[Rfam]
RNA sequence: GCGGAAGAGAUCUAGGGUUCCGGUCCUUCGGGACGACUGGUCCAAGAGGUUUCAGCCGGCUCGCCGGCGCACGGAGGGAUAAAAGCCCGGGAGAC
Numbered sequence: 001g002c003g004g005a006a007g008a009g010a011u012c013u014a015g016g017g018u019u020c021c022g023g024u025c026c027u028u029c030g031g032g033a034c035g036a037c038u039g040g041u042c043c044a045a046g047a048g049g050u051u052u053c054a055g056c057c058g059g060c061u062c063g064c065c066g067g068c069g070c071a072c073g074g075a076g077g078g079a080u081a082a083a084a085g086c087c088c089g090g091g092a093g094a095c
Stems, first nucleotide, its partner, number of pairs: 007053006015043002020040002022037001023034004055068005070090001072093001076088003
RNA: Guanidine-I riboswitch aptamer